TPP riboswitch aptamer (THI element): a 91-nucleotide sequence from Histophilus somni. Pairs were carried over by alignment from the consensus structure, which is taken from published work.
RNA sequence: CCGACUUAGUCGGGGUGCUGAUAACAGCUGAGAUAAUACCCGUGAACCUGAUACAGUUAAUACUGACGUAGGAAACUAAUGGUCUUACUCC
Numbered sequence: 001c002c003g004a005c006u007u008a009g010u011c012g013g014g015g016u017g018c019u020g021a022u023a024a025c026a027g028c029u030g031a032g033a034u035a036a037u038a039c040c041c042g043u044g045a046a047c048c049u050g051a052u053a054c055a056g057u058u059a060a061u062a063c064u065g066a067c068g069u070a071g072g073a074a075a076c077u078a079a080u081g082g083u084c085u086u087a088c089u090c091c
Stems, first nucleotide, its partner, number of pairs: 006079005011042004016036001017028004047072004054065003

Overview:
Lineage of the source: Bacteria > Pseudomonadota > Gammaproteobacteria > Pasteurellales > Histophilus. The sequence is in the family's curated seed alignment.